[Rfam]
RNA sequence: GAGGCGGUAUCCUUAAGGGAACCGCACUUGCAGUUUUGACUAAGUGAAGUAAGUAAACAUAGGACUUGAAACAAGAUGUUGGAUUCUGCUCUGAGCCUUACGGGACCGAGACAGAAGG
Numbered sequence: 001g002a003g004g005c006g007g008u009a010u011c012c013u014u015a016a017g018g019g020a021a022c023c024g025c026a027c028u029u030g031c032a033g034u035u036u037u038g039a040c041u042a043a044g045u046g047a048a049g050u051a052a053g054u055a056a057a058c059a060u061a062g063g064a065c066u067u068g069a070a071a072c073a074a075g076a077u078g079u080u081g082g083a084u085u086c087u088g089c090u091c092u093g094a095g096c097c098u099u100a101c102g103g104g105a106c107c108g109a110g111a112c113a114g115a116a117g118g
Stems, first nucleotide, its partner, number of pairs: 001029003004025005010020002086114003089110003093106001096104002
RNA: pan motif